[Rfam]
Source information:
Rfam assigns this 109-nucleotide RNA from Quercus lobata to the family "Small nucleolar RNA snoR100". Rfam links the family to the GO terms nucleolus and RNA processing. The match comes from Rfam's covariance-model search (93 bits). By type it is an H/ACA-box small nucleolar RNA. The organism belongs to Quercus, within Eukaryota.
RNA sequence: GAAUGAAGGAAGCAUGGUAGUGUACAUGGAAAUUGAAUUCAUGGGUCAACAUGUCUGCUCUCUCUGAUGCUUUUUCUUGAUUUGAGGGCCUGGUUUAAGACCCACAUCU
Numbered sequence: 001g002a003a004u005g006a007a008g009g010a011a012g013c014a015u016g017g018u019a020g021u022g023u024a025c026a027u028g029g030a031a032a033u034u035g036a037a038u039u040c041a042u043g044g045g046u047c048a049a050c051a052u053g054u055c056u057g058c059u060c061u062c063u064c065u066g067a068u069g070c071u072u073u074u075u076c077u078u079g080a081u082u083u084g085a086g087g088g089c090c091u092g093g094u095u096u097a098a099g100a101c102c103c104a105c106a107u108c109u
Stems, first nucleotide, its partner, number of pairs: 012025001014023002043091005053081003